LOOT RNA: a 120-nucleotide RNA sequence. Rfam classes the family as a small RNA.
RNA sequence: GGCCUAAACCACCCUUAAAGGUUGGCAUGGCAUAAAAUCCGUUCAAGGUAGAAAACCCGUCGUCAGGGUUCCUUGAACGGUCGCAGGGGGAAACUUCUGCGUUCUGCCCGAAAGGGUAGA
Numbered sequence: 001g002g003c004c005u006a007a008a009c010c011a012c013c014c015u016u017a018a019a020g021g022u023u024g025g026c027a028u029g030g031c032a033u034a035a036a037a038u039c040c041g042u043u044c045a046a047g048g049u050a051g052a053a054a055a056c057c058c059g060u061c062g063u064c065a066g067g068g069u070u071c072c073u074u075g076a077a078c079g080g081u082c083g084c085a086g087g088g089g090g091a092a093a094c095u096u097c098u099g100c101g102u103u104c105u106g107c108c109c110g111a112a113a114g115g116g117u118a119g120a
Stems, first nucleotide, its partner, number of pairs: 002031003009025003013021003039080010054070005082101008103120006